[Rfam]
RNA sequence: AUGAGUUACAACUCAUUCCCGAUAGGAUUCACCAUGUGUGAAGAUGCCUUGUAACCACAAAUAAUAACUAUUAAUGGGGGAAUUUAUACCAUG
Number, nucleotide and partner (000 for none) at each position: 001a000002u000003g000004a000005g000006u000007u000008a000009c000010a000011a000012c000013u000014c000015a000016u082017u081018c080019c079020c078021g000022a000023u000024a049025g048026g047027a000028u042029u041030c040031a039032c038033c000034a000035u000036g000037u000038g032039u031040g030041a029042a028043g000044a000045u000046g000047c026048c025049u024050u000051g000052u000053a000054a000055c077056c076057a000058c000059a000060a000061a000062u000063a000064a000065u000066a000067a000068c000069u000070a000071u000072u000073a000074a000075u000076g056077g055078g020079g019080g018081a017082a016083u000084u000085u000086a000087u000088a000089c000090c000091a000092u000093g000
Record summary: This 93-nucleotide RNA from Ligilactobacillus saerimneri belongs to the Rfam family "SAM-III riboswitch aptamer (SMK box)". Gene Ontology terms of the family: methionine adenosyltransferase activity and regulation of translational initiation. The literature on the family includes a 2007 paper in Proc Natl Acad Sci U S A by Fuchs et al., "S-adenosylmethionine directly inhibits binding of 30S ribosomal subunits to the SMK box translational riboswitch RNA". The match comes from Rfam's covariance-model search (70 bits).